This 57-nucleotide RNA sequence from Camellia sinensis belongs to the Rfam family "Plastid-ndhJ 3UTR RNA".
Lineage of the source: Eukaryota > Viridiplantae > Euphyllophyta > Gunneridae > Camellia sinensis.
It scores 56 bits against the family's covariance model.
Plastid ndhJ is a non-coding RNA (ncRNA) present in plastids. It was identified as a short stem-loop motif in the 3 prime untranslate region (3UTR) of ndhJ gene.
[Rfam]
RNA sequence: CCAUGAACUUUGUACCGCGCAUGUCACUUAGAUGGACCCUUGAAAGUAGCGUAAGCA
Numbered sequence: 001c002c003a004u005g006a007a008c009u010u011u012g013u014a015c016c017g018c019g020c021a022u023g024u025c026a027c028u029u030a031g032a033u034g035g036a037c038c039c040u041u042g043a044a045a046g047u048a049g050c051g052u053a054a055g056c057a
Stems, first nucleotide, its partner, number of pairs: 019037001022034004